[Rfam]
RNA sequence: CUGCACGUUGCCUCCCGGGCUUUUCUGAAGUUAAUCUAGUGAAGGUGAAUACCCCAAUGCAUGUGCUAAACUUCGCCGUUUAGUGUUGCAGUUUAGACUUUUCUCCUUUACACGGCUGAUCUGUGUCAAAUCAACGGCUACAUCU
Dot-bracket structure: ..((((((.((.....(((..(((((................))).))...)))....))))))))........((((((...((.(((((....(.(...............).)....))))).))....)))))).......
The family of this 145-nucleotide RNA from Hevea brasiliensis is "small nucleolar RNA snoR134". The literature on the family includes a 2009 paper in Nucleic Acids Res by Chen and Wu, "Mining small RNA sequencing data: a new approach to identify small nucleolar RNAs in Arabidopsis". Lineage of the source: Eukaryota > Magnoliopsida > Mesangiospermae > eudicotyledons > Hevea.